6S / SsrS RNA: a 186-nucleotide sequence from Bordetella avium. E. coli 6S RNA was the first non coding RNA to be sequenced, but its function was unknown until recently. It consists of 184 nucleotides that fold into an extended hairpin structure with a large single-stranded internal bulge. Taxonomically the source falls in Bordetella avium (Bacteria, Pseudomonadati, Pseudomonadota, Burkholderiales). The literature on the family includes a 2017 paper in Molecular Cell by Chen et al., "6S RNA Mimics B-Form DNA to Regulate Escherichia coli RNA Polymerase". By type it is a non-coding RNA gene. The family's consensus secondary structure is taken from published work.
RNA sequence: UUGUCCCUGCGGUGCUCGUGACUUGGCCAUACAUUCUCUGAACCGAUGCUUUUCGGCAUACUGGUUGCGGGAGUGUCGAGCGGGUGUGAUCGUCUCUUUGCUGACGAACCCGAUGCUCUUCGGAUCGCGACCACCUUGAACCUAUGGGUUCGAGAUGCCGGCCUAGACGGCACUUGCGGGGCAUCU
Numbered sequence: 001u002u003g004u005c006c007c008u009g010c011g012g013u014g015c016u017c018g019u020g021a022c023u024u025g026g027c028c029a030u031a032c033a034u035u036c037u038c039u040g041a042a043c044c045g046a047u048g049c050u051u052u053u054c055g056g057c058a059u060a061c062u063g064g065u066u067g068c069g070g071g072a073g074u075g076u077c078g079a080g081c082g083g084g085u086g087u088g089a090u091c092g093u094c095u096c097u098u099u100g101c102u103g104a105c106g107a108a109c110c111c112g113a114u115g116c117u118c119u120u121c122g123g124a125u126c127g128c129g130a131c132c133a134c135c136u137u138g139a140a141c142c143u144a145u146g147g148g149u150u151c152g153a154g155a156u157g158c159c160g161g162c163c164u165a166g167a168c169g170g171c172a173c174u175u176g177c178g179g180g181g182c183a184u185c186u
Base pairs, nucleotide, nucleotide: 005181006180007179008178009177010176011175012173013172014171015170017169018168019167035155036154037153039152040151041150042149043148044147063132064131065130067128068127069126070125074122075121078118079117080116081115086109087108090107091106092105093104094103